[Rfam]
RNA sequence: CUGGCUGCCCAAUGGGGGCCGGCAUCUUAACUCCAAGAGGCGUCAGGGCUGCACAGCCGCGUCCUUGGCGCCUGCUUGUACCCAUGUUGCUCAAUGGAGGAUGUGGCUAUGAGAA
Numbered sequence: 001c002u003g004g005c006u007g008c009c010c011a012a013u014g015g016g017g018g019c020c021g022g023c024a025u026c027u028u029a030a031c032u033c034c035a036a037g038a039g040g041c042g043u044c045a046g047g048g049c050u051g052c053a054c055a056g057c058c059g060c061g062u063c064c065u066u067g068g069c070g071c072c073u074g075c076u077u078g079u080a081c082c083c084a085u086g087u088u089g090c091u092c093a094a095u096g097g098a099g100g101a102u103g104u105g106g107c108u109a110u111g112a113g114a115a
Base pairs, nucleotide, nucleotide: 001022002021003020004019005018006017008016009015038073039072040071041070042069043068044067045066046065047064048063075113076112077111078110079109080108082106083105084104085103086102087101088100090099091098092097

Shown here is a 115-nucleotide RNA sequence from Pseudaminobacter soli, a member of the family "Repression of heat shock gene expression (ROSE) element". Taxonomically the source falls in Pseudaminobacter (Bacteria, Pseudomonadota, Alphaproteobacteria, Phyllobacteriaceae). Rfam describes the family as follows. This family represents a 5' UTR cis-regulatory element found in heat shock mRNAs and is known as the ROSE (repression of heat shock gene expression) element. The ROSE element is a negative regulator of heat shock gene expression. For this family Rfam cites "A mRNA-based thermosensor controls expression of rhizobial heat shock genes" (Nocker et al., Nucleic Acids Res, 2001). Rfam links the family to the GO terms response to temperature stimulus and regulation of translation. A search with the family's covariance model found it, with a score of 64 bits.